RNA sequence: AUCCCGCCGGCGGCCGGGUCACGCCGUCACCUCCCUGUUGGACUUGGCCUCGGAGAUUUCUCCGGGGCCUUUUUU
Numbered sequence: 001a002u003c004c005c006g007c008c009g010g011c012g013g014c015c016g017g018g019u020c021a022c023g024c025c026g027u028c029a030c031c032u033c034c035c036u037g038u039u040g041g042a043c044u045u046g047g048c049c050u051c052g053g054a055g056a057u058u059u060c061u062c063c064g065g066g067g068c069c070u071u072u073u074u075u
Stems, first nucleotide, its partner, number of pairs: 009028006046069010
RNA: Singlet oxygen resistance RNA X
Organism: Salibaculum griseiflavum